[Rfam]
RNA sequence: CAAGAAAAAGGCAAACCAUGGCGAAAGCCUGGGACGCAAAGCUUCCGGCCUCACACGGUAUAUAUUUUACGUGUUGGUAGCGGAGUUACCGAAG
Dot-bracket structure: (..(......((...(((.(((....))))))..[))..((((.((((((.........................))).])))))))..)...)
Shown here is a 94-nucleotide RNA sequence from Grimontia hollisae, a member of the family "c-di-GMP-I-GGC riboswitch aptamer".
On this family, see Weinberg et al., Proc Natl Acad Sci U S A 2017: "Bioinformatic analysis of riboswitch structures uncovers variant classes with altered ligand specificity".
The family is grouped with related families in Rfam's "c-di-GMP_I riboswitch clan".
The family has 40 seed sequences and 1,298 matches in Rfam 15.1.
Taxonomically the source falls in Grimontia hollisae (Bacteria, Gammaproteobacteria, Vibrionaceae, Grimontia).
A search with the family's covariance model found it, with a score of 62 bits.
Pairs were carried over by alignment from the consensus structure, which is taken from published work.